The family of this 101-nucleotide RNA sequence from Oryza sativa is "Small nucleolar RNA snoR99". The match comes from Rfam's covariance-model search (70 bits). A reference for the family is Marker et al. (2002), "Experimental RNomics: identification of 140 candidates for small non-messenger RNAs in the plant Arabidopsis thaliana", Curr Biol.

RNA sequence: GUGUCUGUGGGAUGAACAGGUCACAGUAGUUAGCACCAUUUAGUUCACUUUGUCAGCUUAUAGUCUUUUGUCUUAAGCUGAUCGUUGAGAAUGGGAAACGA
Numbered sequence: 001g002u003g004u005c006u007g008u009g010g011g012a013u014g015a016a017c018a019g020g021u022c023a024c025a026g027u028a029g030u031u032a033g034c035a036c037c038a039u040u041u042a043g044u045u046c047a048c049u050u051u052g053u054c055a056g057c058u059u060a061u062a063g064u065c066u067u068u069u070g071u072c073u074u075a076a077g078c079u080g081a082u083c084g085u086u087g088a089g090a091a092u093g094g095g096a097a098a099c100g101a
Stems, first nucleotide, its partner, number of pairs: 036094005052082008